Notes:
Rfam assigns this 92-nucleotide sequence from Actinoplanes awajinensis to the family "Glycine riboswitch aptamer". From the family's description: This family represents the bacterial glycine riboswitch.

RNA sequence: CUCUGGAAAGUCAGCGCCCUCCCAGGGCGCUGCGCCCAAGGUGCAAGCCGCCCGACGCCGGGCGGUGAACCUCUCAGGCAUCCGUGACAGAG
Numbered sequence: 001c002u003c004u005g006g007a008a009a010g011u012c013a014g015c016g017c018c019c020u021c022c023c024a025g026g027g028c029g030c031u032g033c034g035c036c037c038a039a040g041g042u043g044c045a046a047g048c049c050g051c052c053c054g055a056c057g058c059c060g061g062g063c064g065g066u067g068a069a070c071c072u073c074u075c076a077g078g079c080a081u082c083c084g085u086g087a088c089a090g091a092g
Stems, first nucleotide, its partner, number of pairs: 001092005012032007034079003038074001041073001043071001047066006
Record summary
The match comes from Rfam's covariance-model search (38 bits).